[Rfam]
RNA sequence: CAAUAAAGGAAGCAUAAUAUAUACACAGAAAUGAAAUUGUGUCUCUUGGCAUGCCCUCAUUGAUGCUAUUUGGCUUUAAUUUGGAGUCAUGGUUCCAAAGCAAAACA
Numbered sequence: 001c002a003a004u005a006a007a008g009g010a011a012g013c014a015u016a017a018u019a020u021a022u023a024c025a026c027a028g029a030a031a032u033g034a035a036a037u038u039g040u041g042u043c044u045c046u047u048g049g050c051a052u053g054c055c056c057u058c059a060u061u062g063a064u065g066c067u068a069u070u071u072g073g074c075u076u077u078a079a080u081u082u083g084g085a086g087u088c089a090u091g092g093u094u095c096c097a098a099a100g101c102a103a104a105a106c107a
Stems, first nucleotide, its partner, number of pairs: 012024001014022002039090003043086001049080001053074003
Annotation:
Rfam assigns this 107-nucleotide sequence from Rhododendron simsii to the family "Small nucleolar RNA snoR100". Gene Ontology terms of the family: nucleolus and RNA processing. Rfam classes the family as an H/ACA-box small nucleolar RNA. Pairs were carried over by alignment from the consensus structure, which was predicted with WAR. The match comes from Rfam's covariance-model search (56 bits). The literature on the family includes a 2002 paper in Curr Biol by Marker et al., "Experimental RNomics: identification of 140 candidates for small non-messenger RNAs in the plant Arabidopsis thaliana".